Rfam assigns this 53-nucleotide RNA from Salvelinus namaycush to the family "UnaL2 LINE 3' element".
NCBI's taxonomy places the organism under Eukaryota, Chordata, Teleostomi, Salmoniformes, Salvelinus.
Rfam links the family to the GO term transposition, RNA-mediated.
About the family: The eel long interspersed element (LINE) UnaL2 and its partner short interspersed element (SINE) share a conserved 3' tail containing a stem-loop that is critical for their retrotransposition. Presumably, the first step of retrotransposition is the recognition of their 3' tails by UnaL2-encoded reverse transcriptase. The solution structure of a 17-nucleotide RNA derived from the 3' tail of UnaL2 was determined by NMR.
A search with the family's covariance model found it, with a score of 55 bits.
On this family, see Baba et al., RNA 2004: "Solution structure of an RNA stem-loop derived from the 3' conserved region of eel LINE UnaL2".
Rfam classes the family as a cis-regulatory element.
RNA sequence: UGCACGCAUGACUCUAAGUCGCUUGGACAAAAGCGUCUGGUAAAUGGCAUAUA
Numbered sequence: 001u002g003c004a005c006g007c008a009u010g011a012c013u014c015u016a017a018g019u020c021g022c023u024u025g026g027a028c029a030a031a032a033g034c035g036u037c038u039g040g041u042a043a044a045u046g047g048c049a050u051a052u053a
Base pairs, nucleotide, nucleotide: 013042014040015039016038020035021034022033023032024030